[Rfam]
RNA sequence: GGAUCGGGCGGAAACCUGUGGGAGGGUUUCCAGGUAUGGAUCCGAACCCCCGUUUCGAGCGGCAUGCAGGCCGGUGCCCCGGCGGCCCUGCGU
Number, nucleotide and partner (000 for none) at each position: 001g043002g042003a041004u040005c039006g000007g000008g000009c000010g031011g030012a029013a028014a027015c026016c025017u024018g000019u000020g000021g000022g000023a000024g017025g016026g015027u014028u013029u012030c011031c010032a000033g000034g000035u000036a000037u000038g000039g005040a004041u003042c002043c001044g000045a000046a000047c000048c000049c000050c000051c000052g000053u000054u000055u000056c000057g000058a000059g000060c000061g000062g000063c000064a093065u092066g091067c090068a089069g087070g086071c085072c084073g083074g000075u000076g000077c000078c000079c000080c000081g000082g000083c073084g072085g071086c070087c069088c000089u068090g067091c066092g065093u064
RNA: Rhodo-rpoB RNA
Organism: Maritimibacter harenae